Shown here is a 171-nucleotide RNA from Paenibacillus phyllosphaerae, a member of the family "PyrR binding site". Rfam classes the family as a cis-regulatory element. NCBI's taxonomy places the organism under Bacteria, Bacilli, Caryophanales, Paenibacillaceae, Paenibacillus. Its family is annotated with pyrimidine nucleobase biosynthetic process and pyrimidine nucleobase transport in the Gene Ontology. About the family: This family represents the PyrR binding site and terminator structure. This RNA structure is found upstream of a variety of genes involved in pyrimidine biosynthesis and transport. The alignment also includes a portion of the antiterminator structure.
[Rfam]
RNA sequence: AGUACCUUUAAGAUCAGUCCAGAGAGGCUGGCAAGGUAGCGUGAAUAGUUGAAUCGUUACGGUGAAUGGGCGGAAUCUAUGCGUAUGUACAUAGGGGCUGUCUAUAUCUAUGCAUCUGACGAGUCGAAUAACUACCGCACUCCUUGCGCACUACGCAAGGAGUUUUUUUGU
Numbered sequence: 001a002g003u004a005c006c007u008u009u010a011a012g013a014u015c016a017g018u019c020c021a022g023a024g025a026g027g028c029u030g031g032c033a034a035g036g037u038a039g040c041g042u043g044a045a046u047a048g049u050u051g052a053a054u055c056g057u058u059a060c061g062g063u064g065a066a067u068g069g070g071c072g073g074a075a076u077c078u079a080u081g082c083g084u085a086u087g088u089a090c091a092u093a094g095g096g097g098c099u100g101u102c103u104a105u106a107u108c109u110a111u112g113c114a115u116c117u118g119a120c121g122a123g124u125c126g127a128a129u130a131a132c133u134a135c136c137g138c139a140c141u142c143c144u145u146g147c148g149c150a151c152u153a154c155g156c157a158a159g160g161a162g163u164u165u166u167u168u169u170g171u
Stems, first nucleotide, its partner, number of pairs: 003038006014031006047129001049127004054122006137165001139163010